[Rfam]
RNA sequence: GGAGUGUGCGCAUAGCGGGGGGCCUGAAGAAAUGGCUCCUGUGUUUGCAACACACCCAACAGGAACCUGGGUUCAUUGUGACAAGGGGCAUGAAUCUUGCGGCCUUCCGAUGAACAGAUACCCGACACGU
Dot-bracket structure: .(.(((((.....((((.((((((.........))).))).)))).....))))).)............((.(...(((..((.(((.(.(((...))).).))).....)).)))...).)).......